[Rfam]
RNA sequence: GAUUUCUCUUCUUGGCGCUGCCAUGGCCUCCAAAAAAAUGGUUGUGUAUGUUGUGAGAGGAAAAGCAAGUUCCCUCCGUGAGGAAUGAUCGGGCUUUCUUCGGAGUUUGUCUUAUUUCUAUUGCGACAAUUCUUCCUCUGGGCUCGAGAUAUUU
Numbered sequence: 001g002a003u004u005u006c007u008c009u010u011c012u013u014g015g016c017g018c019u020g021c022c023a024u025g026g027c028c029u030c031c032a033a034a035a036a037a038a039u040g041g042u043u044g045u046g047u048a049u050g051u052u053g054u055g056a057g058a059g060g061a062a063a064a065g066c067a068a069g070u071u072c073c074c075u076c077c078g079u080g081a082g083g084a085a086u087g088a089u090c091g092g093g094c095u096u097u098c099u100u101c102g103g104a105g106u107u108u109g110u111c112u113u114a115u116u117u118c119u120a121u122u123g124c125g126a127c128a129a130u131u132c133u134u135c136c137u138c139u140g141g142g143c144u145c146g147a148g149a150u151a152u153u154u
Base pairs, nucleotide, nucleotide: 003060004059005058006057007056008055010053015047016046017045018044021041022040023039024038089147090146091145092144093143094142095141096140102132103131107129108128109127110126111125
Nematode snoRNA ceN88: a 154-nucleotide RNA sequence from Diploscapter pachys. The family's RNA type in Rfam is H/ACA-box small nucleolar RNA. It scores 63 bits against the family's covariance model. The literature on the family includes a 2007 paper in BMC Mol Biol by Jia et al., "Systematic identification of non-coding RNA 2,2,7-trimethylguanosine cap structures in Caenorhabditis elegans".